The family of this 100-nucleotide sequence from Ricinus communis is "Small nucleolar RNA R30/Z108". Rfam classes the family as a C/D-box small nucleolar RNA. Pairs were carried over by alignment from the consensus structure, which was predicted with PFOLD.

RNA sequence: UGAGAUUACAAUGAGGAUUUUCAGCUCCCUCUUCUGAUUUAAGGUUGAGGAAAUUAGCUGGCAGAAUCGAACCUAUAAUUUUUUAGCCACUACUGAGUAA
Numbered sequence: 001u002g003a004g005a006u007u008a009c010a011a012u013g014a015g016g017a018u019u020u021u022c023a024g025c026u027c028c029c030u031c032u033u034c035u036g037a038u039u040u041a042a043g044g045u046u047g048a049g050g051a052a053a054u055u056a057g058c059u060g061g062c063a064g065a066a067u068c069g070a071a072c073c074u075a076u077a078a079u080u081u082u083u084u085a086g087c088c089a090c091u092a093c094u095g096a097g098u099a100a
Stems, first nucleotide, its partner, number of pairs: 006100004